[Rfam]
RNA: U7 small nuclear RNA
Organism: Vicugna pacos
RNA sequence: CAGUGCUACAGGUUUUUUAGAAUGUGUCUAGCAGGCUUUCCGGUCUGCACCGGAAGCCACC
Numbered sequence: 001c002a003g004u005g006c007u008a009c010a011g012g013u014u015u016u017u018u019a020g021a022a023u024g025u026g027u028c029u030a031g032c033a034g035g036c037u038u039u040c041c042g043g044u045c046u047g048c049a050c051c052g053g054a055a056g057c058c059a060c061c
Base pairs, nucleotide, nucleotide: 034058035057036056037055038054040053041052042051043050044049